The record is a 192-nucleotide sequence from Neobacillus cucumis, which matches "Lysine riboswitch aptamer" in Rfam. The source organism's lineage runs through Bacteria, Bacilli, Caryophanales, Bacillaceae and Neobacillus. Rfam's curators write: Riboswitches are metabolite binding domains within certain messenger RNAs that serve as precision sensors for their corresponding targets.
RNA sequence: CGAUGAGGUAGAGGUCGCGGUUUUUAUCAGUAAAACGGAUGAGAUGAAAGAGACAUCCUUGACUCCGUUUGAAAGGAAAAACUGCCGAAGUGUGCUUUGCUCUCUGUAAUAAGCAUGCUGGGUCUGUUUUCGAAUAGGAACAGAACUGUCACGUUUGAACCUACCAAGCAAACGUGUUGAGCUAUCUUUCGG
Number, nucleotide and partner (000 for none) at each position: 001c000002g000003a000004u000005g000006a187007g186008g185009u184010a183011g182012a000013g000014g000015u000016c000017g085018c084019g083020g082021u081022u080023u079024u078025u077026a000027u000028c000029a000030g000031u000032a000033a070034a069035a068036c067037g066038g065039a064040u000041g000042a000043g000044a000045u000046g000047a000048a000049a000050g000051a000052g000053a000054c000055a000056u000057c000058c000059u000060u000061g000062a000063c000064u039065c038066c037067g036068u035069u034070u033071g000072a000073a000074a000075g000076g000077a025078a024079a023080a022081a021082c020083u019084g018085c017086c000087g000088a000089a119090g118091u117092g116093u115094g114095c113096u112097u111098u000099g000100c000101u000102c000103u000104c000105u000106g000107u000108a000109a000110u000111a097112a096113g095114c094115a093116u092117g091118c090119u089120g147121g146122g000123u144124c143125u142126g141127u140128u139129u138130u137131c000132g000133a000134a000135u000136a000137g130138g129139a128140a127141c126142a125143g124144a123145a000146c121147u120148g000149u000150c176151a175152c174153g173154u172155u171156u170157g169158a000159a000160c000161c000162u000163a000164c000165c000166a000167a000168g000169c157170a156171a155172a154173c153174g152175u151176g150177u000178u000179g000180a000181g000182c011183u010184a009185u008186c007187u006188u000189u000190c000191g000192g000